RNA sequence: GAUCAGUGAUUAAAAGGUUUUACUACAGACUUUAAUAACUAUAAGAUCUCUACACUUGAUCUGAUAUCA
Numbered sequence: 001g002a003u004c005a006g007u008g009a010u011u012a013a014a015a016g017g018u019u020u021u022a023c024u025a026c027a028g029a030c031u032u033u034a035a036u037a038a039c040u041a042u043a044a045g046a047u048c049u050c051u052a053c054a055c056u057u058g059a060u061c062u063g064a065u066a067u068c069a
Base pairs, nucleotide, nucleotide: 001068002067003066014033015032016031017030018029019028

This 69-nucleotide sequence from Ursus americanus belongs to the Rfam family "Small nucleolar RNA U2-30". A reference for the family is Tycowski et al. (2004), "Guide RNAs with 5' Caps and Novel Box C/D snoRNA-like Domains for Modification of snRNAs in Metazoa", Curr Biol. Its family is annotated with nucleolus and RNA processing in the Gene Ontology. NCBI's taxonomy places the organism under Eukaryota, Amniota, Mammalia, Boreoeutheria, Ursus. It is annotated as a C/D-box small nucleolar RNA.